[Rfam]
RNA: Selenocysteine insertion sequence 1
Organism: Mytilus edulis
RNA sequence: UCUUCAUAUAUGAUGGUAUGAUACUAAACUCCCUAACGGAAGUAUUGUGCCUGAUAUUCAUAUGAUGA
Dot-bracket structure: ((.((.........((((((((((.....(((.....))).))))))))))............)).))